Shown here is a 59-nucleotide RNA from Winkia neuii, a member of the family "Actino-pnp RNA". The family's consensus secondary structure is taken from published work.
RNA sequence: GUCGGUCUUCGGUAGUGGCUUCCGGAAGUAAGGUCCGUGAGUCUCGAUCGAUGACCGCC
Numbered sequence: 001g002u003c004g005g006u007c008u009u010c011g012g013u014a015g016u017g018g019c020u021u022c023c024g025g026a027a028g029u030a031a032g033g034u035c036c037g038u039g040a041g042u043c044u045c046g047a048u049c050g051a052u053g054a055c056c057g058c059c
Stems, first nucleotide, its partner, number of pairs: 001059001003057005009051005017043005023037004
NCBI's taxonomy places the organism under Bacteria, Actinomycetota, Actinomycetales, Actinomycetaceae, Winkia neuii. By type it is a cis-regulatory element. The match comes from Rfam's covariance-model search (58 bits).